RNA: Brucella sRNA CI27
RNA sequence: CUGGCCACUAAAGCAUGUCUCCCGAAAGUGGGUACCAGUUUCGGGACAAAGACAUGCGUCAAAUCAAAGACCUACAGCGUGUUGCGUGAAUCCAUUUUCACGCAACACGCUGUGGAGAAUGUCUCCCGAAACUGGGAACCGGUUUCGGGGCAAAGACAUGUGAAGG
Numbered sequence: 001c002u003g004g005c006c007a008c009u010a011a012a013g014c015a016u017g018u019c020u021c022c023c024g025a026a027a028g029u030g031g032g033u034a035c036c037a038g039u040u041u042c043g044g045g046a047c048a049a050a051g052a053c054a055u056g057c058g059u060c061a062a063a064u065c066a067a068a069g070a071c072c073u074a075c076a077g078c079g080u081g082u083u084g085c086g087u088g089a090a091u092c093c094a095u096u097u098u099c100a101c102g103c104a105a106c107a108c109g110c111u112g113u114g115g116a117g118a119a120u121g122u123c124u125c126c127c128g129a130a131a132c133u134g135g136g137a138a139c140c141g142g143u144u145u146c147g148g149g150g151c152a153a154a155g156a157c158a159u160g161u162g163a164a165g166g
Stems, first nucleotide, its partner, number of pairs: 013057008022045002026041004031036001060162002063159002072115014087100003120152004126148010